[Rfam]
RNA: mir-3492 microRNA precursor family
RNA sequence: AGAUUUUCGAAUCCGUGUUGAGAUUUUGUCAAACACCAACCCACUAGGGUUGAUCAGUCUUCCAAGAUAAGUGAAGUU
Dot-bracket structure: .(.(((.(..(((..((..(((..((.(((.....................))).)).))).)).)))..).))).).
Numbered sequence: 001a002g003a004u005u006u007u008c009g010a011a012u013c014c015g016u017g018u019u020g021a022g023a024u025u026u027u028g029u030c031a032a033a034c035a036c037c038a039a040c041c042c043a044c045u046a047g048g049g050u051u052g053a054u055c056a057g058u059c060u061u062c063c064a065a066g067a068u069a070a071g072u073g074a075a076g077u078u
Stems, first nucleotide, its partner, number of pairs: 002077001004075003008071001011068003016064002020061003025057002028054003